[Rfam]
RNA sequence: UCUUUCAGUGUUGAAACAUCCUCUAUUGAAUUAGGCUUUCAACCAAGUUCACUGGAGUUUGUUUCAAUAUUGCAAGAA
Numbered sequence: 001u002c003u004u005u006c007a008g009u010g011u012u013g014a015a016a017c018a019u020c021c022u023c024u025a026u027u028g029a030a031u032u033a034g035g036c037u038u039u040c041a042a043c044c045a046a047g048u049u050c051a052c053u054g055g056a057g058u059u060u061g062u063u064u065c066a067a068u069a070u071u072g073c074a075a076g077a078a
Stems, first nucleotide, its partner, number of pairs: 003076003006072013021057005027051005

This 78-nucleotide RNA sequence from Oryctolagus cuniculus belongs to the Rfam family "mir-653 microRNA precursor family". Gene Ontology terms of the family: RISC complex and miRNA-mediated post-transcriptional gene silencing. For this family Rfam cites "Small RNA expression and strain specificity in the rat" (Linsen et al., BMC Genomics, 2010).